[Rfam]
RNA sequence: GGCCUCAAGUGAUGGCGAGAUGACCCGGGAGGACUGUGACCGCACUGGGAUGUAUUCGUACUGUCUGACGGGGCC
Numbered sequence: 001g002g003c004c005u006c007a008a009g010u011g012a013u014g015g016c017g018a019g020a021u022g023a024c025c026c027g028g029g030a031g032g033a034c035u036g037u038g039a040c041c042g043c044a045c046u047g048g049g050a051u052g053u054a055u056u057c058g059u060a061c062u063g064u065c066u067g068a069c070g071g072g073g074c075c
Base pairs, nucleotide, nucleotide: 001075002074003073004072005071006070011065012064013063014062015061019056020055021054022053024049025048027046028045032041